[Rfam]
RNA sequence: CUAGCGCAACAGCAUAAAGGCGGGAGGUCAGUCAUGUUUUUCGAUAACGUGGUCAUUGCCGGGGUACUGACGGUGAGCCUCAUGGUGAUGUUCCUCGCAGGGUUCGGUUUUUUUAUCUGGAAAGACUCACAUAAGCGCAAAGCGCCCUAGGUUUUUCCAGGGGACGAGCACGCAAGGCAUUUUGGGCGACUUCGGUCGCCUUUUUUUUAC
Numbered sequence: 001c002u003a004g005c006g007c008a009a010c011a012g013c014a015u016a017a018a019g020g021c022g023g024g025a026g027g028u029c030a031g032u033c034a035u036g037u038u039u040u041u042c043g044a045u046a047a048c049g050u051g052g053u054c055a056u057u058g059c060c061g062g063g064g065u066a067c068u069g070a071c072g073g074u075g076a077g078c079c080u081c082a083u084g085g086u087g088a089u090g091u092u093c094c095u096c097g098c099a100g101g102g103u104u105c106g107g108u109u110u111u112u113u114u115a116u117c118u119g120g121a122a123a124g125a126c127u128c129a130c131a132u133a134a135g136c137g138c139a140a141a142g143c144g145c146c147c148u149a150g151g152u153u154u155u156u157c158c159a160g161g162g163g164a165c166g167a168g169c170a171c172g173c174a175a176g177g178c179a180u181u182u183u184g185g186g187c188g189a190c191u192u193c194g195g196u197c198g199c200c201u202u203u204u205u206u207u208u209a210c
Base pairs, nucleotide, nucleotide: 010100012098013097049059050058051057077086078085079084168178169177171176184201185200186199187198188197189196190195

Background: Shown here is a 210-nucleotide RNA from Pseudomonas agarici, a member of the family "PhrS". Rfam links the family to the GO term quorum sensing. On this family, see Livny et al., Nucleic Acids Res 2006: "Identification of 17 Pseudomonas aeruginosa sRNAs and prediction of sRNA-encoding genes in 10 diverse pathogens using the bioinformatic tool sRNAPredict2". The family's consensus secondary structure was predicted with CMfinder. The organism belongs to Pseudomonas, within Bacteria.